[Rfam]
RNA sequence: AUGCGGUCGGGAGAUCUUAGAUCUUCGGGAAGCAUGACAGGGAAACACAUCUGUAUCAGAUGGCAAAUUAACUGUC
Numbered sequence: 001a002u003g004c005g006g007u008c009g010g011g012a013g014a015u016c017u018u019a020g021a022u023c024u025u026c027g028g029g030a031a032g033c034a035u036g037a038c039a040g041g042g043a044a045a046c047a048c049a050u051c052u053g054u055a056u057c058a059g060a061u062g063g064c065a066a067a068u069u070a071a072c073u074g075u076c
Stems, first nucleotide, its partner, number of pairs: 001035004010026006036076005048062006
Dot-bracket structure: ((((.....((((((.....)))))).....))))(((((.......((((((...)))))).........)))))
The record is a 76-nucleotide sequence, which matches "Hairpin ribozyme 1 from viruses-like metatranscriptomes" in Rfam. It is one of the family's seed sequences.